[Rfam]
RNA sequence: UAUCGCUCUCCAGCUCCAUACUAACGUAAGAAGUCAGUGUGGCGUUUUCACGAGCGGAAAUUGUCACUGUUCCAAAAAACAAUUGCUAGUCUCCUGUGAGCUAAUGAUCACCUGAUGGUUCAGACAGAU
Numbered sequence: 001u002a003u004c005g006c007u008c009u010c011c012a013g014c015u016c017c018a019u020a021c022u023a024a025c026g027u028a029a030g031a032a033g034u035c036a037g038u039g040u041g042g043c044g045u046u047u048u049c050a051c052g053a054g055c056g057g058a059a060a061u062u063g064u065c066a067c068u069g070u071u072c073c074a075a076a077a078a079a080c081a082a083u084u085g086c087u088a089g090u091c092u093c094c095u096g097u098g099a100g101c102u103a104a105u106g107a108u109c110a111c112c113u114g115a116u117g118g119u120u121c122a123g124a125c126a127g128a129u
Base pairs, nucleotide, nucleotide: 003057004056005055006054007053008052012046013045014044016042017041018040019039020038021037024034025033082108083107084106085105087103088102089101091100092099093098

This 129-nucleotide RNA sequence from Caenorhabditis brenneri belongs to the Rfam family "Nematode snoRNA ceN36-1". Rfam's curators put it in the seed alignment. Rfam links the family to the GO terms nucleolus and RNA processing. The literature on the family includes a 2007 paper in BMC Mol Biol by Jia et al., "Systematic identification of non-coding RNA 2,2,7-trimethylguanosine cap structures in Caenorhabditis elegans". By type it is an H/ACA-box small nucleolar RNA. Lineage of the source: Eukaryota > Opisthokonta > Eumetazoa > Rhabditidae > Caenorhabditis.